[Rfam]
RNA sequence: AUGCACGAUGCAACCCCGGGCUUCUCUGAAUUAUGCAUGAGGUGAAAGCCCCAUUGCUCGUGCAAAAUCAACGCCGUUCGUGUUGCAGUUCAGUCUUAGUUAUUCCACGAUUGAAUCUGUGUCAAAGUAAUGUCUACAUCG
Numbered sequence: 001a002u003g004c005a006c007g008a009u010g011c012a013a014c015c016c017c018g019g020g021c022u023u024c025u026c027u028g029a030a031u032u033a034u035g036c037a038u039g040a041g042g043u044g045a046a047a048g049c050c051c052c053a054u055u056g057c058u059c060g061u062g063c064a065a066a067a068u069c070a071a072c073g074c075c076g077u078u079c080g081u082g083u084u085g086c087a088g089u090u091c092a093g094u095c096u097u098a099g100u101u102a103u104u105c106c107a108c109g110a111u112u113g114a115a116u117c118u119g120u121g122u123c124a125a126a127g128u129a130a131u132g133u134c135u136a137c138a139u140c141g
Base pairs, nucleotide, nucleotide: 003063004062005061006060007059008058010057011056018051019050020049021048022047023045024044026042027041073134075132076131077130078129081124082123084121085120086119087118088117093111094110095109
RNA: small nucleolar RNA snoR134
Organism: Cicer arietinum